A member of the RNA family "PreQ1 (pre queuosine) riboswitch aptamer" from Clostridioides difficile, 44 nucleotides long. This family is a bacterial riboswitch that binds to the metabolite preQ1, an intermediate in the biosynthesis of the modified nucleoside queuosine from GTP. One example of this riboswitch is located in the leader of the Bacillus subtilis ykvJKLM (queCDEF) operon which encodes four genes necessary for queuosine production. PreQ1 binding to the riboswitch aptamer is thought to induce premature transcription termination within the leader to down-regulate expression of these genes. A reference for the family is Schroeder et al. (2023), "A riboswitch separated from its ribosome-binding site still regulates translation", Nucleic Acids Res.
RNA sequence: UCUGUACUUGUUCGAGAACUCCAAGUAUAAAAAACUAAGGAAUU
Numbered sequence: 001u002c003u004g005u006a007c008u009u010g011u012u013c014g015a016g017a018a019c020u021c022c023a024a025g026u027a028u029a030a031a032a033a034a035c036u037a038a039g040g041a042a043u044u
Stems, first nucleotide, its partner, number of pairs: 006026005016036001